[Rfam]
RNA sequence: GUCCAAAAUACAAUGAUGUUGUCUUUUCCAAGCACAUAUCUGAUUGCGCUAUGUGGAAAAUGACUGUUGCUGAGUGAUUUUGGAU
Numbered sequence: 001g002u003c004c005a006a007a008a009u010a011c012a013a014u015g016a017u018g019u020u021g022u023c024u025u026u027u028c029c030a031a032g033c034a035c036a037u038a039u040c041u042g043a044u045u046g047c048g049c050u051a052u053g054u055g056g057a058a059a060a061u062g063a064c065u066g067u068u069g070c071u072g073a074g075u076g077a078u079u080u081u082g083g084a085u
Base pairs, nucleotide, nucleotide: 001085002084003083004082005081006080008078009077011074